[Rfam]
RNA sequence: GUAACUGCGAGGUUACAUCUGAAGGAAGCGAGACUACAAAGCUCGGUACUGACGGACAGGAACCGUAUAUGAGGCAUUUAUGCAUGGGUAAGCAAGCACAUCAUUGUAACGCCCAAUGAGUACAAAAGGUGCAUUUAUGUAGAUACGGCAGGAAUCGGGGGAAAGAAGAUGCC
Numbered sequence: 001g002u003a004a005c006u007g008c009g010a011g012g013u014u015a016c017a018u019c020u021g022a023a024g025g026a027a028g029c030g031a032g033a034c035u036a037c038a039a040a041g042c043u044c045g046g047u048a049c050u051g052a053c054g055g056a057c058a059g060g061a062a063c064c065g066u067a068u069a070u071g072a073g074g075c076a077u078u079u080a081u082g083c084a085u086g087g088g089u090a091a092g093c094a095a096g097c098a099c100a101u102c103a104u105u106g107u108a109a110c111g112c113c114c115a116a117u118g119a120g121u122a123c124a125a126a127a128g129g130u131g132c133a134u135u136u137a138u139g140u141a142g143a144u145a146c147g148g149c150a151g152g153a154a155u156c157g158g159g160g161g162a163a164a165g166a167a168g169a170u171g172c173c
Stems, first nucleotide, its partner, number of pairs: 001016006028173001031170001037165001042159005047153001049151003063148006074140003080134005086114004092107004
RNA: Group II catalytic intron D1-D4-3